[Rfam]
RNA sequence: GAAACGACCACCCCGCACCACCAGCCCGGUGGGUUAGACGGGGACCGUCGGCUGGCAACGGCCGACUGCA
Numbered sequence: 001g002a003a004a005c006g007a008c009c010a011c012c013c014c015g016c017a018c019c020a021c022c023a024g025c026c027c028g029g030u031g032g033g034u035u036a037g038a039c040g041g042g043g044a045c046c047g048u049c050g051g052c053u054g055g056c057a058a059c060g061g062c063c064g065a066c067u068g069c070a
Base pairs, nucleotide, nucleotide: 011043012042013041014040015039018032019031020030021029022028047066048065049064050063051062052061053060054059